Shown here is a 40-nucleotide sequence from Halalkalibacter wakoensis, a member of the family "Ribosomal protein L19 leader". Gene Ontology term of the family: regulation of gene expression. It scores 48 bits against the family's covariance model. For this family Rfam cites "Diverse mechanisms for regulating ribosomal protein synthesis in Escherichia coli" (Zengel and Lindahl, Prog Nucleic Acid Res Mol Biol, 1994). This family is a putative r-protein leader autoregulatory structure found in B. subtilis and other low-GC Gram-positive bacteria. It is located in the 5' untranslated regions of mRNAs encoding ribosomal protein L19 (rplS). By type it is a cis-regulatory leader.
RNA sequence: ACGAUGUUCCGCUGUAGCAUAAACCUAUCAAGAGCAUCUG
Numbered sequence: 001a002c003g004a005u006g007u008u009c010c011g012c013u014g015u016a017g018c019a020u021a022a023a024c025c026u027a028u029c030a031a032g033a034g035c036a037u038c039u040g
Stems, first nucleotide, its partner, number of pairs: 003038007013030002015027003